Rfam assigns this 507-nucleotide part of an RNA from Sneathiella litorea to the family "Bacterial large subunit ribosomal RNA". The base pairs follow the family's consensus structure, which is taken from published work. A search with the family's covariance model found it, with a score of 2780 bits. Its family is annotated with structural constituent of ribosome and ribosome in the Gene Ontology. The literature on the family includes a 2001 paper in Science by Yusupov et al., "Crystal structure of the ribosome at 5.5 A resolution".

[Rfam]
RNA sequence: GUUUUAAGGGCAUUUGGUGGAUACCUUGGCGCAUAGAGGCGAUGAAGGACGUGGCAUGCUGCGAAAAGCUUCGGGGAGUUGCAAGCAAACUUUGAUCCGAAGAUAUCCGAAUGGGGAAACCCACCCCUUUAGGGGUAUCGCUAUCUGAAUAUAUAGGAUAGCGAAGCGAACCUGGUGAACUGAAACAUCUAAGUAGCCAGAGGAAAGGACAUCAACCGAGACUCCGUUAGUAGUGGCGAGCGAACGCGGACCAGGCCAGUGGCCUUAUUCAAACAACCGGAAUCGUCUGGAAAGGCGUGCCAGAGUGGGUGAUAGCCCCGUACGGGUAAUGUUGGAUAAGGUCCUUGAGUAGGGCGGAACACGAGAAAUUCUGUCUGAACAUGGGGGGACCACCCUCCAAGCCUAAGUACUCCUAUGCGACCGAUAGUGAACAAGUACCGUGAGGGAAAGGUGAAAAGCACCCCGACAAGGGGAGUGAAACAGACCUUGAAACCGGAUGCCUACAAU
Numbered sequence: 001g002u003u004u005u006a007a008g009g010g011c012a013u014u015u016g017g018u019g020g021a022u023a024c025c026u027u028g029g030c031g032c033a034u035a036g037a038g039g040c041g042a043u044g045a046a047g048g049a050c051g052u053g054g055c056a057u058g059c060u061g062c063g064a065a066a067a068g069c070u071u072c073g074g075g076g077a078g079u080u081g082c083a084a085g086c087a088a089a090c091u092u093u094g095a096u097c098c099g100a101a102g103a104u105a106u107c108c109g110a111a112u113g114g115g116g117a118a119a120c121c122c123a124c125c126c127c128u129u130u131a132g133g134g135g136u137a138u139c140g141c142u143a144u145c146u147g148a149a150u151a152u153a154u155a156g157g158a159u160a161g162c163g164a165a166g167c168g169a170a171c172c173u174g175g176u177g178a179a180c181u182g183a184a185a186c187a188u189c190u191a192a193g194u195a196g197c198c199a200g201a202g203g204a205a206a207g208g209a210c211a212u213c214a215a216c217c218g219a220g221a222c223u224c225c226g227u228u229a230g231u232a233g234u235g236g237c238g239a240g241c242g243a244a245c246g247c248g249g250a251c252c253a254g255g256c257c258a259g260u261g262g263c264c265u266u267a268u269u270c271a272a273a274c275a276a277c278c279g280g281a282a283u284c285g286u287c288u289g290g291a292a293a294g295g296c297g298u299g300c301c302a303g304a305g306u307g308g309g310u311g312a313u314a315g316c317c318c319c320g321u322a323c324g325g326g327u328a329a330u331g332u333u334g335g336a337u338a339a340g341g342u343c344c345u346u347g348a349g350u351a352g353g354g355c356g357g358a359a360c361a362c363g364a365g366a367a368a369u370u371c372u373g374u375c376u377g378a379a380c381a382u383g384g385g386g387g388g389a390c391c392a393c394c395c396u397c398c399a400a401g402c403c404u405a406a407g408u409a410c411u412c413c414u415a416u417g418c419g420a421c422c423g424a425u426a427g428u429g430a431a432c433a434a435g436u437a438c439c440g441u442g443a444g445g446g447a448a449a450g451g452u453g454a455a456a457a458g459c460a461c462c463c464c465g466a467c468a469a470g471g472g473g474a475g476u477g478a479a480a481c482a483g484a485c486c487u488u489g490a491a492a493c494c495g496g497a498u499g500c501c502u503a504c505a506a507u
Base pairs, nucleotide, nucleotide: 008502009501010500011499012498013497014496015495016494017493023487024451025450028422029421030419031418032417033416034415035414036413037411038410039167040166047108048107049106050063051062052061069102070101071100072099073098074097075096078090079089080088113122114121115120123136124135125134126133127132138164139163140162141161142160143159144158145157146156171202172200173199174198175197176196182189183188212219213218222407223250224249225248226247227246233241234240253404254403255402256401261345262344264340265339266338267337268336277325278324279323284297285296286295287294301305307319308318309317352376353375354374355373356372357371358370359369383398384397385396386395387394438445439444461473462472463471464470